The record is a 91-nucleotide RNA sequence from Ceuthmochares aereus, which matches "U5 spliceosomal RNA" in Rfam. The match comes from Rfam's covariance-model search (86 bits). Taxonomically the source falls in Ceuthmochares (Eukaryota, Teleostomi, Sarcopterygii, Tetrapoda). Rfam classes the family as a spliceosomal small nuclear RNA. Pairs were carried over by alignment from the consensus structure, which is taken from published work.
RNA sequence: AUACUCUGGUUUCUCUUCAGAUCGUAUAAAUCUUUCGCCUUUUACUAAAGAUUUCCGUGGAGAGGAACAGUUACGAGUGUCGAGAAAUUUU
Numbered sequence: 001a002u003a004c005u006c007u008g009g010u011u012u013c014u015c016u017u018c019a020g021a022u023c024g025u026a027u028a029a030a031u032c033u034u035u036c037g038c039c040u041u042u043u044a045c046u047a048a049a050g051a052u053u054u055c056c057g058u059g060g061a062g063a064g065g066a067a068c069a070g071u072u073a074c075g076a077g078u079g080u081c082g083a084g085a086a087a088u089u090u091u
Base pairs, nucleotide, nucleotide: 003078004077005076006075009068010067011066012065013064014063015062016061017060018059019058028054029053030052031051032050033049034048035047